[Rfam]
RNA sequence: AAUAACAUAAAUAUCGUUACUCGUAUAUCCUCGGUAAUAUGGUCUGAGUGUCUCUACCUGGUUCCCAUUGAAAGAACUAGACUACGAGUUAAAGUGUCUGGCUA
Numbered sequence: 001a002a003u004a005a006c007a008u009a010a011a012u013a014u015c016g017u018u019a020c021u022c023g024u025a026u027a028u029c030c031u032c033g034g035u036a037a038u039a040u041g042g043u044c045u046g047a048g049u050g051u052c053u054c055u056a057c058c059u060g061g062u063u064c065c066c067a068u069u070g071a072a073a074g075a076a077c078u079a080g081a082c083u084a085c086g087a088g089u090u091a092a093a094g095u096g097u098c099u100g101g102c103u104a
Base pairs, nucleotide, nucleotide: 019089020088021087022086023085024084025083030048031047032046033045034044058080059079060078061077062076063075064074
RNA: Purine riboswitch aptamer